Rfam assigns this 177-nucleotide RNA from Haloglomus irregulare to the family "Sense overlapping transcript RNA 0042 (sot)". Rfam describes the family as follows. It is associated with IS1341-type transposase (tnpB) genes, at the 3'-end in H. salinarum NRC-1. The tetraloop structural motif may be functional. The literature on the family includes a 2015 paper in RNA Biol by Gomes-Filho et al., "Sense overlapping transcripts in IS1341-type transposase genes are functional non-coding RNAs in archaea".
Nucleotides: 177
Base pairs, nucleotide, nucleotide: 003044004043007040008039009038010037013035015033016031017030018029019028020027021026045061046060047059048058049057064124065123066122067121068120069117071114072113073112074111075110076109077108090103091102093100094099138153143149144148156177157176158175159174160173161172162171163170
Number, partner (000 for none) and nucleotide at each position: 001000a002000g003044g004043u005000a006000c007040u008039c009038c010037c011000g012000a013035g014000c015033c016031u017030c018029g019028c020027c021026a022000c023000g024000g025000a026021u027020g028019g029018c030017g031016g032000u033015g034000a035013u036000a037010g038009g039008g040007a041000u042000a043004a044003c045061g046060g047059c048058u049057g050000g051000u052000u053000a054000g055000c056000a057049c058048a059047g060046c061045c062000a063000g064124c065123g066122g067121u068120u069117c070000a071114c072113c073112u074111g075110u076109u077108c078000g079000a080000c081000c082000g083000u084000a085000g086000u087000g088000a089000g090103g091102g092000c093100g094099u095000c096000u097000u098000c099094g100093c101000c102091c103090c104000a105000c106000g107000a108077g109076a110075a111074c112073a113072g114071g115000u116000u117069g118000c119000u120068a121067a122066c123065c124064g125000c126000g127000a128000a129000c130000c131000g132000u133000a134000a135000u136000a137000c138153c139000c140000c141000a142000a143149a144148c145000g146000c147000g148144g149143u150000c151000a152000u153138g154000a155000a156177u157176c158175c159174u160173c161172g162171c163170c164000g165000u166000u167000c168000a169000g170163g171162g172161c173160g174159g175158g176157g177156a
Description:
The match comes from Rfam's covariance-model search (120 bits). The family's RNA type in Rfam is small RNA. The base pairs follow the family's consensus structure, which was predicted with RNAfold.